[Rfam]
RNA sequence: CCGGUCGAACCGCCGAGUCUCGUAGCUCGAACCGCGUGCUGCGAGAGCCGGGGACCCAACAAGUUCUGGGGUGAAUCCGCGGCGCACGACCGCGCGGCGGUAGGGCGGCUCCCGGCCCGAACCCGUCAGCUAACCCGGUAGGCGGAUUGAGGGAGAGGAG
Numbered sequence: 001c002c003g004g005u006c007g008a009a010c011c012g013c014c015g016a017g018u019c020u021c022g023u024a025g026c027u028c029g030a031a032c033c034g035c036g037u038g039c040u041g042c043g044a045g046a047g048c049c050g051g052g053g054a055c056c057c058a059a060c061a062a063g064u065u066c067u068g069g070g071g072u073g074a075a076u077c078c079g080c081g082g083c084g085c086a087c088g089a090c091c092g093c094g095c096g097g098c099g100g101u102a103g104g105g106c107g108g109c110u111c112c113c114g115g116c117c118c119g120a121a122c123c124c125g126u127c128a129g130c131u132a133a134c135c136c137g138g139u140a141g142g143c144g145g146a147u148u149g150a151g152g153g154a155g156a157g158g159a160g
Stems, first nucleotide, its partner, number of pairs: 011144004018046009047139006057068002069124003077100004103118004
Dot-bracket structure: ..........((((...(((((((((...........)))))))))((((((....((........))(((.....((((................))))..((((........))))...))).........)))))).))))................
The family of this 160-nucleotide sequence from a Streptosporangiales bacterium is "c-di-AMP riboswitch aptamer (ydaO/yuaA leader)".